[Rfam]
A member of the RNA family "RAGATH-18 RNA" from Clostridium liquoris, 93 nucleotides long. The family's RNA type in Rfam is small RNA. It scores 58 bits against the family's covariance model. The base pairs follow the family's consensus structure, which is taken from published work. Taxonomically the source falls in Clostridium (Bacteria, Bacillota, Eubacteriales, Clostridiaceae).
RNA sequence: CCUAUGGAGUGUUACACAAACGAAGGUAGCCGCAAUUUAACCUUUUUGCAGGAGGUAAUAAAAUGGGCAAAAUCGGACAUUAUGAAGUAGGAA
Numbered sequence: 001c002c003u004a005u006g007g008a009g010u011g012u013u014a015c016a017c018a019a020a021c022g023a024a025g026g027u028a029g030c031c032g033c034a035a036u037u038u039a040a041c042c043u044u045u046u047u048g049c050a051g052g053a054g055g056u057a058a059u060a061a062a063a064u065g066g067g068c069a070a071a072a073u074c075g076g077a078c079a080u081u082a083u084g085a086a087g088u089a090g091g092a093a
Stems, first nucleotide, its partner, number of pairs: 001091005009080005021075003029068003033065002